Gag/pol translational readthrough site: a 62-nucleotide RNA from Mesocricetus auratus. Taxonomically the source falls in Mesocricetus (Eukaryota, Opisthokonta, Metazoa, Deuterostomia). The literature on the family includes a 1990 paper in Virus Genes by ten Dam et al., "RNA pseudoknots: translational frameshifting and readthrough on viral RNAs". By type it is a cis-regulatory element.

[Rfam]
RNA sequence: UAGGGGAGACAGGGCUCGGGCCCCCUCCCCGAGCCUAGGGUAACCCUAAAUGUGGAAGGGAA
Numbered sequence: 001u002a003g004g005g006g007a008g009a010c011a012g013g014g015c016u017c018g019g020g021c022c023c024c025c026u027c028c029c030c031g032a033g034c035c036u037a038g039g040g041u042a043a044c045c046c047u048a049a050a051u052g053u054g055g056a057a058g059g060g061a062a
Base pairs, nucleotide, nucleotide: 008041010039012036013035014034015033016031018029019028022060023059024058026056027055